Shown here is an 83-nucleotide RNA from Triplophysa tibetana, a member of the family "Small nucleolar RNA MBII-202". Lineage of the source: Eukaryota > Craniata > Actinopterygii > Neopterygii > Triplophysa.
RNA sequence: UGAUGACAAAUUCUCCGGAAUCUCUGUAUCUUCUUGAUGAUACUCCUUGAACCCCAUUUUCUGAUGACUGUUUGUACGUUUGU
Numbered sequence: 001u002g003a004u005g006a007c008a009a010a011u012u013c014u015c016c017g018g019a020a021u022c023u024c025u026g027u028a029u030c031u032u033c034u035u036g037a038u039g040a041u042a043c044u045c046c047u048u049g050a051a052c053c054c055c056a057u058u059u060u061c062u063g064a065u066g067a068c069u070g071u072u073u074g075u076a077c078g079u080u081u082g083u
Base pairs, nucleotide, nucleotide: 003083004082005081006080
Rfam classes the family as a C/D-box small nucleolar RNA. Rfam links the family to the GO terms nucleolus and RNA processing.